[Rfam]
Shown here is a 79-nucleotide RNA from Gymnodraco acuticeps, a member of the family "Small nucleolar RNA SNORD72". Rfam links the family to the GO terms nucleolus and RNA processing. For this family Rfam cites "RNomics: an experimental approach that identifies 201 candidates for novel, small, non-messenger RNAs in mouse" (Huttenhofer et al., EMBO J, 2001). Rfam classes the family as a C/D-box small nucleolar RNA. Pairs were carried over by alignment from the consensus structure. Rfam describes the family as follows. snoRNA HBII-240 belongs to the CD family of snoRNAs. It is the human orthologue of the mouse MBII-240 and is predicted to guide 2'O-ribose methylation of the large 28S rRNA at residue U4590.

RNA sequence: GUCUUGUCUGUGAUGUUCCAAACACAAAUGUCUGAACAUAUGAUUUCCUGUGAUUCACACUUCUGUUCUGAGACAAGAC
Numbered sequence: 001g002u003c004u005u006g007u008c009u010g011u012g013a014u015g016u017u018c019c020a021a022a023c024a025c026a027a028a029u030g031u032c033u034g035a036a037c038a039u040a041u042g043a044u045u046u047c048c049u050g051u052g053a054u055u056c057a058c059a060c061u062u063c064u065g066u067u068c069u070g071a072g073a074c075a076a077g078a079c
Stems, first nucleotide, its partner, number of pairs: 002078007